[Rfam]
RNA sequence: UUAGCAGUAUAAGCGCCAGAGCUUGCUCGUAACGAGGGGCAUCGCUUGAGUCAUACCAAAACUCCCGUCUGUGAAGCGGGACUAAGUAAUCGGAAUGAAGCUUUUGCCUCUGAGCAAGGCAGCCGGGAGGGCGUGCCUUAGCAGAGGGAACAACAAAAGAAUUUCAUUUCUCCGUAUGACCUGAGGCGAUGGAGAGCAAGCUGACGAGGUGAAGGUGUUCGAAUUAUUCGGCGGGGACCUUCCGGUUAAGCAUUCAAGCCGUAAGCCGAUAUGCGAAAAGGACGCGGGCAACCGGUCUCACAACCAUUCGGCGGAAUGCGU
Number, nucleotide and partner (000 for none) at each position: 001u000002u000003a000004g000005c000006a000007g000008u000009a000010u000011a000012a000013g000014c000015g000016c000017c000018a000019g000020a202021g201022c200023u199024u198025g197026c196027u195028c000029g000030u000031a000032a000033c000034g000035a000036g000037g000038g000039g000040c000041a000042u000043c000044g000045c000046u000047u000048g000049a000050g000051u000052c000053a000054u000055a000056c000057c000058a000059a000060a000061a000062c000063u000064c000065c000066c000067g000068u000069c000070u000071g000072u000073g000074a000075a000076g000077c000078g000079g000080g000081a000082c000083u000084a000085a000086g000087u000088a000089a000090u000091c000092g000093g000094a000095a000096u000097g000098a000099a000100g000101c000102u000103u000104u000105u000106g000107c000108c000109u000110c000111u000112g000113a000114g000115c000116a000117a000118g000119g000120c000121a000122g000123c000124c000125g000126g000127g000128a000129g000130g000131g000132c000133g000134u000135g000136c000137c000138u000139u000140a000141g000142c000143a000144g000145a000146g000147g000148g000149a000150a000151c000152a000153a000154c000155a000156a000157a000158a000159g000160a000161a000162u000163u000164u000165c000166a000167u000168u000169u000170c000171u000172c000173c000174g000175u000176a000177u000178g000179a000180c000181c000182u000183g000184a000185g000186g000187c000188g000189a000190u000191g000192g000193a000194g000195a027196g026197c025198a024199a023200g022201c021202u020203g000204a000205c000206g000207a000208g000209g000210u000211g242212a241213a240214g239215g238216u000217g000218u000219u231220c230221g229222a228223a000224u000225u000226a000227u000228u222229c221230g220231g219232c000233g000234g000235g000236g000237a000238c215239c214240u213241u212242c211243c261244g260245g259246u258247u257248a000249a000250g000251c000252a000253u000254u000255c000256a000257a247258g246259c245260c244261g243262u000263a000264a000265g000266c311267c310268g309269a308270u000271a000272u000273g000274c000275g000276a000277a000278a000279a000280g298281g297282a296283c295284g000285c294286g293287g292288g000289c000290a000291a000292c287293c286294g285295g283296u282297c281298u280299c000300a000301c000302a000303a000304c000305c000306a000307u000308u269309c268310g267311g266312c000313g000314g000315a000316a000317u000318g000319c000320g000321u000
This 321-nucleotide sequence from Paenibacillus beijingensis belongs to the Rfam family "glmS glucosamine-6-phosphate activated ribozyme aptamer". It scores 50 bits against the family's covariance model. Lineage of the source: Bacteria > Bacillati > Bacilli > Paenibacillaceae > Paenibacillus. The literature on the family includes a 2004 paper in Nature by Winkler et al., "Control of gene expression by a natural metabolite-responsive ribozyme".